[Rfam]
RNA sequence: GGCCGGGCCGCGACAACCGGGCACGGCGGCGAGGAAGUACAGGGCUUAUUUUCCCGGUUUCUGGCCUUGGGCAGCGAAUAGCCACGCGCACUUCUGUACCGCCCGGUCC
Numbered sequence: 001g002g003c004c005g006g007g008c009c010g011c012g013a014c015a016a017c018c019g020g021g022c023a024c025g026g027c028g029g030c031g032a033g034g035a036a037g038u039a040c041a042g043g044g045c046u047u048a049u050u051u052u053c054c055c056g057g058u059u060u061c062u063g064g065c066c067u068u069g070g071g072c073a074g075c076g077a078a079u080a081g082c083c084a085c086g087c088g089c090a091c092u093u094c095u096g097u098a099c100c101g102c103c104c105g106g107u108c109c
Stems, first nucleotide, its partner, number of pairs: 006108004012022001014020001025103005034094004040069007070083003
A member of the RNA family "Rhizobiales sRNA Atu_At1" from Aquibium oceanicum, 109 nucleotides long. The match comes from Rfam's covariance-model search (86 bits). It is annotated as a small RNA. The literature on the family includes a 2012 paper in RNA Biol by Wilms et al., "Deep sequencing uncovers numerous small RNAs on all four replicons of the plant pathogen Agrobacterium tumefaciens".